[Rfam]
RNA sequence: GGUGGAGCAUUCCAAAGGGAUCGCAUUGAUCCGAUCUCCUCCACCCCUUUCAAUCUCGAUCGAUCGGGUCAUGCGAUCCCUUCGGAAUUCCUCAU
Numbered sequence: 001g002g003u004g005g006a007g008c009a010u011u012c013c014a015a016a017g018g019g020a021u022c023g024c025a026u027u028g029a030u031c032c033g034a035u036c037u038c039c040u041c042c043a044c045c046c047c048u049u050u051c052a053a054u055c056u057c058g059a060u061c062g063a064u065c066g067g068g069u070c071a072u073g074c075g076a077u078c079c080c081u082u083c084g085g086a087a088u089u090c091c092u093c094a095u
Stems, first nucleotide, its partner, number of pairs: 002095004009088005015082007023074004028070009

Notes
A member of the RNA family "mir-393 microRNA precursor family" from Dorcoceras hygrometricum, 95 nucleotides long. Rfam links the family to the GO terms miRNA-mediated post-transcriptional gene silencing and RISC complex. Lineage of the source: Eukaryota > Spermatophyta > asterids > lamiids > Dorcoceras. The match comes from Rfam's covariance-model search (68 bits).